[Rfam]
RNA sequence: AACAUGAAUCAGGUCAAGAGUCUGAAUAACUCGGAGAUCUUCUGUGUUGCCAUCAGCUUCAUCUCUUGAAAUCUCUAACGAGAAUGAAGUUAAAUAACAACACUAUAUUU
Numbered sequence: 001a002a003c004a005u006g007a008a009u010c011a012g013g014u015c016a017a018g019a020g021u022c023u024g025a026a027u028a029a030c031u032c033g034g035a036g037a038u039c040u041u042c043u044g045u046g047u048u049g050c051c052a053u054c055a056g057c058u059u060c061a062u063c064u065c066u067u068g069a070a071a072u073c074u075c076u077a078a079c080g081a082g083a084a085u086g087a088a089g090u091u092a093a094a095u096a097a098c099a100a101c102a103c104u105a106u107a108u109u110u
Base pairs, nucleotide, nucleotide: 044103045102046101047100048099049098055091056090057089058088059087060086062083063082064081065080
Rfam assigns this 110-nucleotide RNA sequence from Olea europaea to the family "Small nucleolar RNA snoR97".
NCBI's taxonomy places the organism under Eukaryota, Streptophytina, Spermatophyta, Mesangiospermae, Olea europaea.
Rfam links the family to the GO terms RNA processing and nucleolus.
Rfam classes the family as an H/ACA-box small nucleolar RNA.